Description:
This 57-nucleotide RNA from Impatiens glandulifera belongs to the Rfam family "Plastid-rps18 3UTR RNA".

RNA sequence: CGCAAGUAUUUUACGAUUAAGAAAUACCUGUCUCUUAUACAGAUCAUGUAUUAAUCU
Numbered sequence: 001c002g003c004a005a006g007u008a009u010u011u012u013a014c015g016a017u018u019a020a021g022a023a024a025u026a027c028c029u030g031u032c033u034c035u036u037a038u039a040c041a042g043a044u045c046a047u048g049u050a051u052u053a054a055u056c057u
Base pairs, nucleotide, nucleotide: 018037019036020035021034022033024031025030
Plastid rps18 is a non-coding RNA (ncRNA) present in plastids. It was identified as a short stem-loop motif in the 3 prime untranslate region (3UTR) of rps18 gene.